RNA: Small nucleolar RNA snR60/Z15/Z230/Z193/J17
Nucleotides: 100
Stems, first nucleotide, its partner, number of pairs: 004097004
Number, partner (000 for none) and nucleotide at each position: 001000a002000c003000a004097a005096c006095u007094c008000u009000a010000a011000u012000g013000a014000u015000g016000a017000u018000a019000a020000a021000a022000u023000u024000u025000a026000u027000u028000g029000c030000a031000u032000a033000g034000u035000u036000c037000a038000a039000c040000u041000g042000a043000u044000c045000a046000a047000a048000a049000g050000u051000g052000a053000a054000g055000a056000u057000a058000a059000c060000c061000a062000u063000a064000c065000c066000a067000u068000c069000u070000a071000u072000a073000g074000u075000c076000u077000u078000u079000c080000a081000c082000c083000c084000c085000u086000a087000u088000c089000u090000g091000a092000a093000u094007g095006a096005g097004u098000u099000g100000u